A member of the RNA family "Small nucleolar RNA SNORD79" from Mola mola, 80 nucleotides long.
[Rfam]
RNA sequence: AACUGUCAAUGAUGAUUUUGCUUUUGACAAUGGGAAUCUCUCUGAAAAAGAAUGAAAGAUGAUGUCUAACUGACACAGUG
Numbered sequence: 001a002a003c004u005g006u007c008a009a010u011g012a013u014g015a016u017u018u019u020g021c022u023u024u025u026g027a028c029a030a031u032g033g034g035a036a037u038c039u040c041u042c043u044g045a046a047a048a049a050g051a052a053u054g055a056a057a058g059a060u061g062a063u064g065u066c067u068a069a070c071u072g073a074c075a076c077a078g079u080g
Stems, first nucleotide, its partner, number of pairs: 002079005
Clan: SNORD74 clan. The match comes from Rfam's covariance-model search (72 bits). Its family is annotated with nucleolus and RNA processing in the Gene Ontology.